[Rfam]
RNA sequence: AUAUGAGCUGCCCAUAAUCGUAAGAUUAUGGUGAUAAUUAGGUUAAUUGUCAAGAAACUCCAAUUAUAUAAUAUGAUUGGACAACUUGCAGCGAAGCCGGUAUAGGUAUUUUAUAUAUAUCGGAACGUUCAACGACUAGAAAGUGAGUAAUAUCAACCAUAAUCUUUCCACGAGUGCCUAACCACCAUAUGAUUUUAUUAUAUGGUCGAAGACAUAGUCUACCCAAUUAUGUAAAUAAUUG
Numbered sequence: 001a002u003a004u005g006a007g008c009u010g011c012c013c014a015u016a017a018u019c020g021u022a023a024g025a026u027u028a029u030g031g032u033g034a035u036a037a038u039u040a041g042g043u044u045a046a047u048u049g050u051c052a053a054g055a056a057a058c059u060c061c062a063a064u065u066a067u068a069u070a071a072u073a074u075g076a077u078u079g080g081a082c083a084a085c086u087u088g089c090a091g092c093g094a095a096g097c098c099g100g101u102a103u104a105g106g107u108a109u110u111u112u113a114u115a116u117a118u119a120u121c122g123g124a125a126c127g128u129u130c131a132a133c134g135a136c137u138a139g140a141a142a143g144u145g146a147g148u149a150a151u152a153u154c155a156a157c158c159a160u161a162a163u164c165u166u167u168c169c170a171c172g173a174g175u176g177c178c179u180a181a182c183c184a185c186c187a188u189a190u191g192a193u194u195u196u197a198u199u200a201u202a203u204g205g206u207c208g209a210a211g212a213c214a215u216a217g218u219c220u221a222c223c224c225a226a227u228u229a230u231g232u233a234a235a236u237a238a239u240u241g
Base pairs, nucleotide, nucleotide: 017027038181039180040179041178043176048090049089051088052087053086054085059081060080061079062078063077064076065075066074091128092127097123098122099121101117102116103115104114132220134219135218136217137216138215184206185205186204187203188202189201190200191199192198226239227238228237229236230235
This 241-nucleotide RNA sequence from Coemansia sp. RSA 2050 belongs to the Rfam family "Group I catalytic intron". The organism belongs to Coemansia, within Eukaryota. About the family: Group I catalytic introns are large self-splicing ribozymes. They catalyse their own excision from mRNA, tRNA and rRNA precursors in a wide range of organisms. Rfam links the family to the GO term Group I intron splicing. It scores 78 bits against the family's covariance model.